RNA sequence: AUUUCUUUAUCGCUUAAUCCAUAUGGAGCGGGGGAACCAAUUAUGUUAGUGCAGUGUUUUGCACUUGGGGUGAAUCCUUUUAAAAAGGUAGGGCAAACUCUCUUUCUGCCCGAAUCCGACAGCUAACUCCGUAAGCGUUCUAGAGAGAGGAA
Numbered sequence: 001a002u003u004u005c006u007u008u009a010u011c012g013c014u015u016a017a018u019c020c021a022u023a024u025g026g027a028g029c030g031g032g033g034g035a036a037c038c039a040a041u042u043a044u045g046u047u048a049g050u051g052c053a054g055u056g057u058u059u060u061g062c063a064c065u066u067g068g069g070g071u072g073a074a075u076c077c078u079u080u081u082a083a084a085a086a087g088g089u090a091g092g093g094c095a096a097a098c099u100c101u102c103u104u105u106c107u108g109c110c111c112g113a114a115u116c117c118g119a120c121a122g123c124u125a126a127c128u129c130c131g132u133a134a135g136c137g138u139u140c141u142a143g144a145g146a147g148a149g150g151a152a
Stems, first nucleotide, its partner, number of pairs: 011137004018027003028132006038067002068117003076088004091111004

This 152-nucleotide RNA sequence from Niallia nealsonii belongs to the Rfam family "c-di-AMP riboswitch aptamer (ydaO/yuaA leader)". Rfam's curators write: This family represents a conserved RNA structure found upstream of the ydaO and yuaA genes in Bacillus subtilis and related genes in other bacteria.